[Rfam]
RNA: Streptomyces RNA 6106
RNA sequence: ACGCCGUCCCGAGCGGCGUUCGCGGCCUCGAACGGGCCAUGGUGGGGGUGGUGCCGUGUCGGCGCAGCACCACCCCCUAC
Numbered sequence: 001a002c003g004c005c006g007u008c009c010c011g012a013g014c015g016g017c018g019u020u021c022g023c024g025g026c027c028u029c030g031a032a033c034g035g036g037c038c039a040u041g042g043u044g045g046g047g048g049u050g051g052u053g054c055c056g057u058g059u060c061g062g063c064g065c066a067g068c069a070c071c072a073c074c075c076c077c078u079a080c
Stems, first nucleotide, its partner, number of pairs: 001019007020042003024038005044077011056065003